[Rfam]
RNA sequence: AAUGGCCUGUGAUGAAUAAAACUUUUGCCUACAUUGUCUGAUUAUUCACAAUGAAGAAACAACUCCUAAGAUUUCUGAGGCCCUU
Numbered sequence: 001a002a003u004g005g006c007c008u009g010u011g012a013u014g015a016a017u018a019a020a021a022c023u024u025u026u027g028c029c030u031a032c033a034u035u036g037u038c039u040g041a042u043u044a045u046u047c048a049c050a051a052u053g054a055a056g057a058a059a060c061a062a063c064u065c066c067u068a069a070g071a072u073u074u075c076u077g078a079g080g081c082c083c084u085u
Stems, first nucleotide, its partner, number of pairs: 001085002004082004
Background:
The family of this 85-nucleotide RNA sequence from Lactuca saligna is "Small nucleolar RNA SNORD34". The match comes from Rfam's covariance-model search (50 bits). The source organism's lineage runs through Eukaryota, Pentapetalae, asterids, Cichorioideae and Lactuca. The family has 14 seed sequences and 1,319 matches in Rfam 15.1. From the family's description: snoRNA U34 is found in intron 5 of the ribosomal protein L13a gene in humans. The family's RNA type in Rfam is C/D-box small nucleolar RNA. A reference for the family is Galardi et al. (2002), "Purified box C/D snoRNPs are able to reproduce site-specific 2'-O-methylation of target RNA in vitro", Mol Cell Biol.